[Rfam]
RNA sequence: CAGAAUUCAGGGCAAAGCUGCGGAAACGCAGUGACGCAAAACUACAGGGACUUCGACCAUUGGUCAUGUCAGCCAGCUGCUAAG
Numbered sequence: 001c002a003g004a005a006u007u008c009a010g011g012g013c014a015a016a017g018c019u020g021c022g023g024a025a026a027c028g029c030a031g032u033g034a035c036g037c038a039a040a041a042c043u044a045c046a047g048g049g050a051c052u053u054c055g056a057c058c059a060u061u062g063g064u065c066a067u068g069u070c071a072g073c074c075a076g077c078u079g080c081u082a083a084g
Stems, first nucleotide, its partner, number of pairs: 012037002017032006040078001042076002047074002049070003056064003
The record is an 84-nucleotide RNA sequence from Paenalicyclobacillus ferrooxydans, which matches "c-di-GMP-I riboswitch aptamer" in Rfam. Rfam links the family to the GO term cyclic-di-GMP binding. About the family: GEMM was predicted in a large-scale screen for bacterial structured RNA regulatory elements. Genes associated with GEMM are involved in a diverse array of functions, including chemotaxis regulation, signal transduction, secretion and chitin.